[Rfam]
RNA sequence: CCCAGUGUUUCACCGCUGGUAUUCCAGGAAGGCAUGCGUGUUGGUGCAUCCAUAUAGGUAUGCAAGCUCUUCCAACAAAGUACCAAAGGCUCUUUUUGAGUUGAGGAAGAAACCGUGAGGUGGAUACCCUCCUGUUAGCCUCAUAUCGGGUGAGGGC
Numbered sequence: 001c002c003c004a005g006u007g008u009u010u011c012a013c014c015g016c017u018g019g020u021a022u023u024c025c026a027g028g029a030a031g032g033c034a035u036g037c038g039u040g041u042u043g044g045u046g047c048a049u050c051c052a053u054a055u056a057g058g059u060a061u062g063c064a065a066g067c068u069c070u071u072c073c074a075a076c077a078a079a080g081u082a083c084c085a086a087a088g089g090c091u092c093u094u095u096u097u098g099a100g101u102u103g104a105g106g107a108a109g110a111a112a113c114c115g116u117g118a119g120g121u122g123g124a125u126a127c128c129c130u131c132c133u134g135u136u137a138g139c140c141u142c143a144u145a146u147c148g149g150g151u152g153a154g155g156g157c
Stems, first nucleotide, its partner, number of pairs: 002019006028072005033062005039056003042052003088102005105128002113120002131150004136145001
Rfam assigns this 157-nucleotide RNA from Candidatus Scalindua japonica to the family "Group II catalytic intron D1-D4-7". The literature on the family includes a 2001 paper in EMBO J by Chu et al., "Control of branch-site choice by a group II intron". NCBI's taxonomy places the organism under Bacteria, Pseudomonadati, Planctomycetota, Candidatus Brocadiia, Candidatus Scalindua.